[Rfam]
RNA: Mammalian CPEB3 ribozyme
Organism: Crocodylus porosus
RNA sequence: AGAAGCAGGCGGGGGCCACAGCAGAAGCAUUCAUGUUGUGACCCCGUCAGGUAAUACCUGGCAAUUUUGCU
Numbered sequence: 001a002g003a004a005g006c007a008g009g010c011g012g013g014g015g016c017c018a019c020a021g022c023a024g025a026a027g028c029a030u031u032c033a034u035g036u037u038g039u040g041a042c043c044c045c046g047u048c049a050g051g052u053a054a055u056a057c058c059u060g061g062c063a064a065u066u067u068u069g070c071u
Stems, first nucleotide, its partner, number of pairs: 012045004017040001020071007027039003048060005